Shown here is a 71-nucleotide RNA from a Microcaldota archaeon, a member of the family "tRNA".
The family's RNA type in Rfam is transfer RNA.

RNA sequence: GCGACCGUAGUCUAGCGGCAGGAUCUUGGCUUCCCAAGCCAAUGACCCGGGUUCGAACCCCGGCGGUCGCA
Numbered sequence: 001g002c003g004a005c006c007g008u009a010g011u012c013u014a015g016c017g018g019c020a021g022g023a024u025c026u027u028g029g030c031u032u033c034c035c036a037a038g039c040c041a042a043u044g045a046c047c048c049g050g051g052u053u054c055g056a057a058c059c060c061c062g063g064c065g066g067u068c069g070c071a
Base pairs, nucleotide, nucleotide: 001070002069003068004067005066006065007064010024011023012022013021026042027041028040029039030038047063048062049061050060051059
Rfam links the family to the GO term triplet codon-amino acid adaptor activity. It scores 64 bits against the family's covariance model.